[Rfam]
Rfam assigns this 166-nucleotide RNA sequence from Megalops atlanticus to the family "Small Cajal body specific RNA 1". For this family Rfam cites "Cajal body-specific small nuclear RNAs: a novel class of 2'-O-methylation and pseudouridylation guide RNAs" (Darzacq et al., EMBO J, 2002). Rfam describes the family as follows. scaRNAs are a specific class of small nuclear RNAs which localise to the Cajal bodies and guide the modification of RNA polymerase II transcribed spliceosomal RNAs U1, U2, U4, U5 and U12. ACA35 belong to the H/ACA box class of guide RNAs as it has the predicted hairpin-hinge-hairpin-tail structure, conserved H/ACA-box motifs and is found associated with GAR1. It is predicted to guide pseudouridylation of the U2 spliceosomal snRNA at residue U89. Pairs were carried over by alignment from the consensus structure, which was predicted with RNAalifold. Gene Ontology terms of the family: nucleolus, Cajal body and RNA processing.

RNA sequence: CAGCACCAGAUACUGACCUGGCUGUCCUCAGCCCGGUGCCCCCAGGGCGCUGUAAGCUGUUCCCCAGUGGCUUCCAGGUCCCCAAAGGUGCGAGAGAAACAAGAGCCCUGUGAUUUAAGCUCAGAGCGUGAAGACUCGCUCUGUGUUAUAACUCAGUGGCACAUGG
Numbered sequence: 001c002a003g004c005a006c007c008a009g010a011u012a013c014u015g016a017c018c019u020g021g022c023u024g025u026c027c028u029c030a031g032c033c034c035g036g037u038g039c040c041c042c043c044a045g046g047g048c049g050c051u052g053u054a055a056g057c058u059g060u061u062c063c064c065c066a067g068u069g070g071c072u073u074c075c076a077g078g079u080c081c082c083c084a085a086a087g088g089u090g091c092g093a094g095a096g097a098a099a100c101a102a103g104a105g106c107c108c109u110g111u112g113a114u115u116u117a118a119g120c121u122c123a124g125a126g127c128g129u130g131a132a133g134a135c136u137c138g139c140u141c142u143g144u145g146u147u148a149u150a151a152c153u154c155a156g157u158g159g160c161a162c163a164u165g166g
Stems, first nucleotide, its partner, number of pairs: 003091005015080004020075002024071003029059004035051006105160003124139001126137001128135002141156003145152002